Purine riboswitch aptamer: a 102-nucleotide RNA from Kurthia sp. 11kri321. Rfam links the family to the GO term purine nucleobase biosynthetic process.
[Rfam]
RNA sequence: AAACAUACACACGCAUUCACUCAUAUAAUAGUGGGAAUAUGGCCCACGAGUCUCUACCGAUUUGCCGUAAACGAAUUGACUAUGAGGAAGCAUGAUUUAUUG
Numbered sequence: 001a002a003a004c005a006u007a008c009a010c011a012c013g014c015a016u017u018c019a020c021u022c023a024u025a026u027a028a029u030a031g032u033g034g035g036a037a038u039a040u041g042g043c044c045c046a047c048g049a050g051u052c053u054c055u056a057c058c059g060a061u062u063u064g065c066c067g068u069a070a071a072c073g074a075a076u077u078g079a080c081u082a083u084g085a086g087g088a089a090g091c092a093u094g095a096u097u098u099a100u101u102g
Stems, first nucleotide, its partner, number of pairs: 020086006029049001031047005058078007